[Rfam]
RNA sequence: AUUAACACGAGCCAAGUGCAACAAUGCGUGAAGAAAAAAAAAAGUUUUGUUCAGUCGGCUCGCGUUAAUA
Numbered sequence: 001a002u003u004a005a006c007a008c009g010a011g012c013c014a015a016g017u018g019c020a021a022c023a024a025u026g027c028g029u030g031a032a033g034a035a036a037a038a039a040a041a042a043a044g045u046u047u048u049g050u051u052c053a054g055u056c057g058g059c060u061c062g063c064g065u066u067a068a069u070a
Stems, first nucleotide, its partner, number of pairs: 001069003005065002008062006017053002021050004026045002
This 70-nucleotide RNA sequence from Magallana gigas belongs to the Rfam family "mir-375 microRNA precursor family". Rfam links the family to the GO terms miRNA-mediated post-transcriptional gene silencing and RISC complex. The family has 47 seed sequences and 824 matches in Rfam 15.1. The match comes from Rfam's covariance-model search (51 bits).